[Rfam]
Rfam assigns this 67-nucleotide RNA sequence from Mucilaginibacter sp. JRF to the family "Fluoride riboswitch aptamer (crcB RNA motif)".

RNA sequence: UACAACAAAGGCAAUGGUGUUCUGCCUAUUUGAACCGCUUUAAAAAGCUGAUGACGCCUACCCACAA
Numbered sequence: 001u002a003c004a005a006c007a008a009a010g011g012c013a014a015u016g017g018u019g020u021u022c023u024g025c026c027u028a029u030u031u032g033a034a035c036c037g038c039u040u041u042a043a044a045a046a047g048c049u050g051a052u053g054a055c056g057c058c059u060a061c062c063c064a065c066a067a
Base pairs, nucleotide, nucleotide: 010026011025012024013023016058017057018056019055020054021053037048038047039046040045

The source organism's lineage runs through Bacteria, Pseudomonadati, Bacteroidota, Sphingobacteriia and Mucilaginibacter.
The literature on the family includes a 2012 paper in Science by Baker et al., "Widespread genetic switches and toxicity resistance proteins for fluoride".